[Rfam]
A member of the RNA family "SAM-I/IV (S-adenosyl methionine) riboswitch aptamer" from Litorivicinus lipolyticus, 106 nucleotides long.
RNA sequence: AUCAAACAUGCAGAGUAGGGCGGGCGCCCUCACCAACCUGUCGGUGUCGACAAGGUGGUCAGAGACUCAGUCUCCAUGGGGCCGUAUGGCAACCAAUGACGCGCCC
Numbered sequence: 001a002u003c004a005a006a007c008a009u010g011c012a013g014a015g016u017a018g019g020g021c022g023g024g025c026g027c028c029c030u031c032a033c034c035a036a037c038c039u040g041u042c043g044g045u046g047u048c049g050a051c052a053a054g055g056u057g058g059u060c061a062g063a064g065a066c067u068c069a070g071u072c073u074c075c076a077u078g079g080g081g082c083c084g085u086a087u088g089g090c091a092a093c094c095a096a097u098g099a100c101g102c103g104c105c106c
Base pairs, nucleotide, nucleotide: 007078008077009076010075015031017030018029019028020027021026032059033058034057037055038054039053040051041050042049044102045101046100047099048098081090082089083088
Overview:
Its Rfam clan is "SAM clan". The family's consensus secondary structure is taken from published work. NCBI's taxonomy places the organism under Bacteria, Pseudomonadati, Gammaproteobacteria, Litorivicinaceae, Litorivicinus.